[Rfam]
RNA sequence: GCACCACGAGACGAAGUGAAUGGGUUGUUCUCCUAUGAACUAUAGGUCUCAACCCAGGAAAGUCCCCGGGCCCACUAUUGCAGAGAUGCAACCUCGGAAACGAGUUAUAGCUUCGGCUAAGGAGUCCUUUCGCCCAUGUGGCGAGGGUCUGAGACGAGUGUGGAGCCCUUUCGGACUCAUAGCCGAAGCAAAUCUUUGGCCGAUUAUACACAGUUAUUCACUUGGUCCUUUGUAGGACUAAACAGAACGGGGCUUACGAUCUUGUGGUG
Numbered sequence: 001g002c003a004c005c006a007c008g009a010g011a012c013g014a015a016g017u018g019a020a021u022g023g024g025u026u027g028u029u030c031u032c033c034u035a036u037g038a039a040c041u042a043u044a045g046g047u048c049u050c051a052a053c054c055c056a057g058g059a060a061a062g063u064c065c066c067c068g069g070g071c072c073c074a075c076u077a078u079u080g081c082a083g084a085g086a087u088g089c090a091a092c093c094u095c096g097g098a099a100a101c102g103a104g105u106u107a108u109a110g111c112u113u114c115g116g117c118u119a120a121g122g123a124g125u126c127c128u129u130u131c132g133c134c135c136a137u138g139u140g141g142c143g144a145g146g147g148u149c150u151g152a153g154a155c156g157a158g159u160g161u162g163g164a165g166c167c168c169u170u171u172c173g174g175a176c177u178c179a180u181a182g183c184c185g186a187a188g189c190a191a192a193u194c195u196u197u198g199g200c201c202g203a204u205u206a207u208a209c210a211c212a213g214u215u216a217u218u219c220a221c222u223u224g225g226u227c228c229u230u231u232g233u234a235g236g237a238c239u240a241a242a243c244a245g246a247a248c249g250g251g252g253c254u255u256a257c258g259a260u261c262u263u264g265u266g267g268u269g
Base pairs, nucleotide, nucleotide: 002269003268004267005266006265007264008263009262010261011260014223015222016221017220018219019218022055023054024053025052026051027050060255061254062253064252065251066250067249079090080089081088082087091106093104094103095102096101108191110189112187113186114185115184116183117182122178123177124176162172163171164170165169224239225238226237227236228235229234
RNA: RNase MRP
Organism: Castanea mollissima